The record is a 73-nucleotide sequence from Leptolyngbya sp. FACHB-16, which matches "Glutamine riboswitch aptamer (glnA leader)" in Rfam.
The literature on the family includes a 2011 paper in RNA Biol by Ames and Breaker, "Bacterial aptamers that selectively bind glutamine".
RNA sequence: AUCGUUCAUCCCCUCAAUUCACUACACCAUGAGUGGGACGGAAGUAGGGCGAUCGCGCCUGAAGGAACGCGCU
Number, nucleotide and partner (000 for none) at each position: 001a000002u000003c069004g068005u067006u066007c065008a000009u038010c037011c036012c035013c000014u000015c000016a000017a000018u000019u000020c000021a000022c000023u000024a000025c000026a000027c000028c000029a000030u000031g000032a000033g000034u000035g012036g011037g010038a009039c000040g000041g070042a000043a000044g000045u000046a000047g060048g059049g058050c057051g056052a000053u000054c000055g000056c051057g050058c049059c048060u047061g000062a000063a000064g000065g007066a006067a005068c004069g003070c041071g000072c000073u000